[Rfam]
RNA sequence: CUUCACCGACCCCAACCACAAAGGUUCUCCCGGCUCCCCCCGAUCUUGCCCAUAAGUGGCCAACAACGCCUGAGCCUC
Numbered sequence: 001c002u003u004c005a006c007c008g009a010c011c012c013c014a015a016c017c018a019c020a021a022a023g024g025u026u027c028u029c030c031c032g033g034c035u036c037c038c039c040c041c042g043a044u045c046u047u048g049c050c051c052a053u054a055a056g057u058g059g060c061c062a063a064c065a066a067c068g069c070c071u072g073a074g075c076c077u078c
Stems, first nucleotide, its partner, number of pairs: 014026004034074003041068002046063003050059003
ASpks TB sRNA: a 78-nucleotide sequence from Mycobacterium tuberculosis.
It is one of the family's seed sequences.
Lineage of the source: Bacteria > Actinomycetes > Mycobacteriales > Mycobacterium > Mycobacterium tuberculosis.